[Rfam]
This 81-nucleotide RNA sequence from Otolemur garnettii belongs to the Rfam family "Small nucleolar RNA ZL8". Rfam classes the family as a C/D-box small nucleolar RNA. Pairs were carried over by alignment from the consensus structure, which was predicted with RNAfold.
RNA sequence: CAGUGAUAAUGAUGACCUGGUUGGACUAGAGUCUCUGAGCUUUUUUUCUGAGGAUCUUUGAAACCACCUGAUCCACUCACU
Numbered sequence: 001c002a003g004u005g006a007u008a009a010u011g012a013u014g015a016c017c018u019g020g021u022u023g024g025a026c027u028a029g030a031g032u033c034u035c036u037g038a039g040c041u042u043u044u045u046u047u048c049u050g051a052g053g054a055u056c057u058u059u060g061a062a063a064c065c066a067c068c069u070g071a072u073c074c075a076c077u078c079a080c081u
Base pairs, nucleotide, nucleotide: 003077004075005074015072017070019068020067021066023064028057029056030055032053033052034051035050037048038047039046

Rfam links the family to the GO terms nucleolus and RNA processing.